[Rfam]
RNA sequence: UGGACAGUAUCAUUUCGAACUGUACCUUUCUAGGCGUUAAACAAAACAAUUAAAAAGAUCUGCCUUGAUCCAAUGAGAGACAGGGACGGAAGA
Numbered sequence: 001u002g003g004a005c006a007g008u009a010u011c012a013u014u015u016c017g018a019a020c021u022g023u024a025c026c027u028u029u030c031u032a033g034g035c036g037u038u039a040a041a042c043a044a045a046a047c048a049a050u051u052a053a054a055a056a057g058a059u060c061u062g063c064c065u066u067g068a069u070c071c072a073a074u075g076a077g078a079g080a081c082a083g084g085g086a087c088g089g090a091a092g093a
Stems, first nucleotide, its partner, number of pairs: 002026002004023005010018002060089003063085005069080002
RNA: pan motif
Organism: Ureibacillus sinduriensis